[Rfam]
RNA sequence: ACCCGGGAAGCCGAAAACGGUAAACAGAGUAGGCU
Numbered sequence: 001a002c003c004c005g006g007g008a009a010g011c012c013g014a015a016a017a018c019g020g021u022a023a024a025c026a027g028a029g030u031a032g033g034c035u
Stems, first nucleotide, its partner, number of pairs: 003020003010034003